[Rfam]
RNA sequence: ACGCGAAGGUUCCCAGCGGAGAGGAAGCGGUCUUGAACGACACCUCUCUAACACAUAAUUUACACCUUCGCAAACGGAGAUUGGCCAUCUUAAACGCGCUUCUGAAAAUUUCAAUUUUAGAUGCGUUUUGAACCCUUUGGCUAUAUUUUC
Numbered sequence: 001a002c003g004c005g006a007a008g009g010u011u012c013c014c015a016g017c018g019g020a021g022a023g024g025a026a027g028c029g030g031u032c033u034u035g036a037a038c039g040a041c042a043c044c045u046c047u048c049u050a051a052c053a054c055a056u057a058a059u060u061u062a063c064a065c066c067u068u069c070g071c072a073a074a075c076g077g078a079g080a081u082u083g084g085c086c087a088u089c090u091u092a093a094a095c096g097c098g099c100u101u102c103u104g105a106a107a108a109u110u111u112c113a114a115u116u117u118u119a120g121a122u123g124c125g126u127u128u129u130g131a132a133c134c135c136u137u138u139g140g141c142u143a144u145a146u147u148u149u150c
Base pairs, nucleotide, nucleotide: 003071004070005069006068007067008066009065012021014019026047027046030041031040032039084141085140086139087138096126098124099123101121102120103119104118105117106116